[Rfam]
RNA sequence: AGCCACGCAGUGAGCACAAAGCGAACUAUUCUUUCGCCUUUUACUAAAGAAUACUGUGUGCGCUGCAUUUAGUGGCAUACGCCUGUUUUUGGAGGGGUUCUCUUUUUUGAUUGCC
Numbered sequence: 001a002g003c004c005a006c007g008c009a010g011u012g013a014g015c016a017c018a019a020a021g022c023g024a025a026c027u028a029u030u031c032u033u034u035c036g037c038c039u040u041u042u043a044c045u046a047a048a049g050a051a052u053a054c055u056g057u058g059u060g061c062g063c064u065g066c067a068u069u070u071a072g073u074g075g076c077a078u079a080c081g082c083c084u085g086u087u088u089u090u091g092g093a094g095g096g097g098u099u100c101u102c103u104u105u106u107u108u109g110a111u112u113g114c115c
Stems, first nucleotide, its partner, number of pairs: 003075004008065005015060004027053008095114001097112001099110002
RNA: U5 spliceosomal RNA